This 136-nucleotide RNA from Trichonephila inaurata belongs to the Rfam family "Wolbachia sRNA 46". The pairing is the family consensus, mapped onto this sequence. Rfam 15.1 lists 237 matches to the family in 34 species. The match comes from Rfam's covariance-model search (89 bits).
[Rfam]
Nucleotides: 136
Stems, first nucleotide, its partner, number of pairs: 003136003015123006022116012035104003039100008
Number, partner (000 for none) and nucleotide at each position: 001000g002000g003136a004135a005134c006000c007000a008000a009000a010000a011000a012000a013000g014000a015123u016122g017121u018120c019119a020118u021000c022116c023115c024114a025113g026112u027111g028110c029109u030108u031107g032106a033105c034000u035104a036103c037102u038000u039100g040099g041098a042097u043096c044095c045094a046093g047000a048000a049000a050000a051000u052000u053000u054000a055000a056000u057000u058000g059000c060000a061000a062000a063000u064000g065000a066000a067000c068000a069000c070000a071000c072000u073000a074000a075000g076000c077000a078000a079000u080000u081000g082000c083000a084000u085000a086000a087000u088000a089000a090000a091000a092000a093046c094045u095044g096043g097042a098041u099040u100039c101000c102037a103036g104035u105033g106032u107031c108030a109029a110028g111027c112026a113025c114024u115023g116022g117000a118020a119019u120018g121017a122016c123015a124000g125000a126000u127000a128000c129000u130000c131000c132000g133000a134005g135004u136003u